[Rfam]
RNA sequence: ACAGUUUUUCCUCUGUUGAAUUCUUGCACUAGCUUUCAUAUGGGCCAUAUUAAGUUACAUGUGGGUGGGUGCCGUAACAGUGCAGCAACCAUUCUGCUAGCUUGUGCAAGAGUUUAAAAGUGGUGAAACUUU
Numbered sequence: 001a002c003a004g005u006u007u008u009u010c011c012u013c014u015g016u017u018g019a020a021u022u023c024u025u026g027c028a029c030u031a032g033c034u035u036u037c038a039u040a041u042g043g044g045c046c047a048u049a050u051u052a053a054g055u056u057a058c059a060u061g062u063g064g065g066u067g068g069g070u071g072c073c074g075u076a077a078c079a080g081u082g083c084a085g086c087a088a089c090c091a092u093u094c095u096g097c098u099a100g101c102u103u104g105u106g107c108a109a110g111a112g113u114u115u116a117a118a119a120g121u122g123g124u125g126a127a128a129c130u131u132u
Stems, first nucleotide, its partner, number of pairs: 005128004010123002013120002016117014031102004037096002

Shown here is a 132-nucleotide RNA from Arabidopsis thaliana, a member of the family "MIR4221 microRNA precursor family". NCBI's taxonomy places the organism under Eukaryota, Tracheophyta, Euphyllophyta, rosids, Arabidopsis. Gene Ontology terms of the family: miRNA-mediated post-transcriptional gene silencing and RISC complex. It is one of the family's seed sequences.